[Rfam]
RNA sequence: ACGUGCUCCGGGGUCGGUGAAAGUCCGAGCCGGCGGUGAUAGUCCGCGACCCGCGCACGCGCCCCGCCGGGGCGUUGUGAGCGGCUGAGCUGGUGGAACUCCAGCACCGACGGUGAAAGUCCGGAUGGGAGGAAGCACGA
Numbered sequence: 001a002c003g004u005g006c007u008c009c010g011g012g013g014u015c016g017g018u019g020a021a022a023g024u025c026c027g028a029g030c031c032g033g034c035g036g037u038g039a040u041a042g043u044c045c046g047c048g049a050c051c052c053g054c055g056c057a058c059g060c061g062c063c064c065c066g067c068c069g070g071g072g073c074g075u076u077g078u079g080a081g082c083g084g085c086u087g088a089g090c091u092g093g094u095g096g097a098a099c100u101c102c103a104g105c106a107c108c109g110a111c112g113g114u115g116a117a118a119g120u121c122c123g124g125a126u127g128g129g130a131g132g133a134a135g136c137a138c139g140a
Base pairs, nucleotide, nucleotide: 002139003138004137005136006135007134008132009131015027016026017025029120030119031109032108033047034046035045036044042107043106051084052083053082054081089105090104091103092102093101111123112122113121
RNA: FMN riboswitch aptamer (RFN element)
Organism: Actinomyces respiraculi